[Rfam]
Nucleotides: 048
Stems, first nucleotide, its partner, number of pairs: 003048003007043004015037005021031003
Number, partner (000 for none) and nucleotide at each position: 001000c002000c003048g004047g005046c006000u007043c008042c009041g010040g011000u012000u013000c014000a015037c016036g017035u018034c019033c020000c021031u022030g023029c024000a025000u026000c027000c028000u029023g030022c031021a032000c033019g034018g035017g036016c037015g038000a039000c040010c041009c042008g043007g044000c045000g046005g047004c048003c

The family of this 48-nucleotide sequence from Nakamurella alba is "L31-Actinobacteria ribosomal protein leader". It is annotated as a cis-regulatory leader. A search with the family's covariance model found it, with a score of 61 bits.